[Rfam]
RNA sequence: GACUUAUCACGAGAAGCAGAGGGACGGGCCCUGUGAAGCUUCAGCAACCUCUAAUCCAAUUAGAAAGGUGCUAAUUCCAGCAAGGACUCAGAUUCCUUGAAAGAUAAGAG
Numbered sequence: 001g002a003c004u005u006a007u008c009a010c011g012a013g014a015a016g017c018a019g020a021g022g023g024a025c026g027g028g029c030c031c032u033g034u035g036a037a038g039c040u041u042c043a044g045c046a047a048c049c050u051c052u053a054a055u056c057c058a059a060u061u062a063g064a065a066a067g068g069u070g071c072u073a074a075u076u077c078c079a080g081c082a083a084g085g086a087c088u089c090a091g092a093u094u095c096c097u098u099g100a101a102a103g104a105u106a107a108g109a110g
Stems, first nucleotide, its partner, number of pairs: 003108006013042005021031003025080001027078002043072004048068002050064004076102001081099006

Shown here is a 110-nucleotide RNA from Lysinibacillus sp. 2017, a member of the family "SAM riboswitch aptamer (S box leader)". Rfam links the family to the GO term regulation of gene expression. It scores 97 bits against the family's covariance model. From the family's description: The SAM riboswitch is found upstream of a number of genes which code for proteins involved in methionine or cysteine biosynthesis in Gram-positive bacteria. The SAM riboswitch acts at the level of transcription termination control. The predicted structure consists of a complex stem-loop region followed by a single stem loop terminator region. The family's consensus secondary structure is taken from published work. The organism belongs to Lysinibacillus, within Bacteria.